[Rfam]
RNA sequence: GAAUAUCUUCCCUUCACUACGGAUCGUCGGGCACGUACCUGCCCGUGAAAAGGAACACAA
Numbered sequence: 001g002a003a004u005a006u007c008u009u010c011c012c013u014u015c016a017c018u019a020c021g022g023a024u025c026g027u028c029g030g031g032c033a034c035g036u037a038c039c040u041g042c043c044c045g046u047g048a049a050a051a052g053g054a055a056c057a058c059a060a
Stems, first nucleotide, its partner, number of pairs: 010052001013049004028045006
Dot-bracket structure: .........(..((((...........((((((......))))))))))..)........
Shown here is a 60-nucleotide RNA sequence from Arthrobacter echini, a member of the family "msiK RNA". NCBI's taxonomy places the organism under Bacteria, Bacillati, Actinomycetes, Micrococcales, Arthrobacter. The base pairs follow the family's consensus structure, which is taken from published work. Rfam classes the family as a cis-regulatory element.